[Rfam]
RNA sequence: AAAGUGCUCCUUUUAGUCCAAUAAGGAGGGCUGAGAAGCGGCUAGAGCUGCCAUCUCAUGCAUUUAGGCAAUGCUUAACAUUUGGCAAAGAGGUUUAAGCUUGGCCAGGUGCAUGGUGUGGGAGCAACUCCUUCCGCAUGCUUUGUUCGCCCAUUGGACUGAAGGGAGCUCCUGGUUUU
Dot-bracket structure: ...(.((((((..(((((((...........................((.(((...((((....(.........................................)....))))...))).))..............................)))))))..)))))).)........
Shown here is a 179-nucleotide RNA from Populus trichocarpa, a member of the family "MIR159 microRNA precursor family". Gene Ontology terms of the family: miRNA-mediated post-transcriptional gene silencing and RISC complex.